[Rfam]
RNA sequence: GGCUGGUCAAAGUGCAACAGUUUUACAACUAAUUGAUCACAACCAGUUACAGAUUUUUUUUUGUUCCUUUUCCACUCCAACUGCUUCACUUGACUAGCCUAGG
Number, nucleotide and partner (000 for none) at each position: 001g099002g098003c097004u096005g095006g094007u093008c092009a000010a091011a090012g000013u000014g087015c000016a082017a000018c000019a000020g078021u000022u000023u000024u000025a000026c000027a065028a064029c063030u000031a061032a060033u000034u000035g000036a000037u000038c000039a000040c000041a000042a000043c000044c000045a000046g000047u000048u000049a000050c000051a000052g000053a000054u000055u000056u000057u000058u000059u000060u032061u031062u000063g029064u028065u027066c000067c000068u000069u000070u000071u000072c000073c000074a000075c000076u000077c000078c020079a000080a000081c000082u016083g000084c000085u000086u000087c014088a000089c000090u011091u010092g008093a007094c006095u005096a004097g003098c002099c001100u000101a000102g000103g000
RNA: Y RNA
Organism: Chlorocebus sabaeus